[Rfam]
Nucleotides: 138
Stems, first nucleotide, its partner, number of pairs: 004068001006066002009062002012059001014049001016047002022037002025034001086120003090116002094113004101108002
Number, partner (000 for none) and nucleotide at each position: 001000c002000a003000g004068u005000c006066u007065g008000a009062g010061u011000c012059u013000c014049g015000a016047u017046g018000g019000a020000u021000g022037g023036c024000c025034g026000c027000u028000g029000u030000u031000g032000u033000u034025c035000a036023g037022c038000g039000a040000u041000u042000g043000a044000g045000c046017c047016a048000c049014c050000u051000g052000a053000g054000c055000a056000c057000a058000a059012a060000a061010a062009c063000g064000a065007c066006a067000a068004g069000c070000c071000a072000g073000g074000u075000a076000a077000a078000u079000a080000u081000a082000c083000u084000c085000a086120c087119u088118g089000a090116u091115g092000a093000c094113g095112u096111c097110a098000a099000a100000a101108g102107g103000g104000u105000u106000u107102u108101u109000a110097u111096g112095a113094c114000a115091c116090a117000a118088c119087a120086g121000c122000c123000g124000c125000a126000a127000g128000c129000u130000a131000a132000a133000u134000a135000c136000c137000g138000u